[Rfam]
RNA sequence: GAUGGUUGUCAUGAAUGGGGAAUAUUCAAGCUCAGCAAACCAGAUUACUUGUCUAUUUACAUUGGGCAUGGAUCUCUACACAGACUAUCCCACGGGACAAAGCCACC
Numbered sequence: 001g002a003u004g005g006u007u008g009u010c011a012u013g014a015a016u017g018g019g020g021a022a023u024a025u026u027c028a029a030g031c032u033c034a035g036c037a038a039a040c041c042a043g044a045u046u047a048c049u050u051g052u053c054u055a056u057u058u059a060c061a062u063u064g065g066g067c068a069u070g071g072a073u074c075u076c077u078a079c080a081c082a083g084a085c086u087a088u089c090c091c092a093c094g095g096g097a098c099a100a101a102g103c104c105a106c107c
Stems, first nucleotide, its partner, number of pairs: 001107001003105004